[Rfam]
RNA sequence: AUAAAAAAUAGCCCUCCAGGGGGAGGACUCAUGGUAUCUGGUAUAUACCAGAUACUGAAUGGGAGAGGAGAAACCGGAGAAAGAGCUUAUGGGGAAACGUAAGUCUUCUCCGCGG
Numbered sequence: 001a002u003a004a005a006a007a008a009u010a011g012c013c014c015u016c017c018a019g020g021g022g023g024a025g026g027a028c029u030c031a032u033g034g035u036a037u038c039u040g041g042u043a044u045a046u047a048c049c050a051g052a053u054a055c056u057g058a059a060u061g062g063g064a065g066a067g068g069a070g071a072a073a074c075c076g077g078a079g080a081a082a083g084a085g086c087u088u089a090u091g092g093g094g095a096a097a098c099g100u101a102a103g104u105c106u107u108c109u110c111c112g113c114g115g
Stems, first nucleotide, its partner, number of pairs: 012026002015023001028063005036053006075112004081107003085104005
Rfam assigns this 115-nucleotide RNA from Marininema mesophilum to the family "ylbH leader". This family is a putative regulatory RNA structure that is found upstream of the ylbH gene in B. subtilis and related low GC Gram-positive bacteria. For this family Rfam cites "New RNA motifs suggest an expanded scope for riboswitches in bacterial genetic control" (Barrick et al., Proc Natl Acad Sci U S A, 2004). The family's RNA type in Rfam is cis-regulatory leader. It scores 80 bits against the family's covariance model. Lineage of the source: Bacteria > Bacillati > Caryophanales > Thermoactinomycetaceae > Marininema.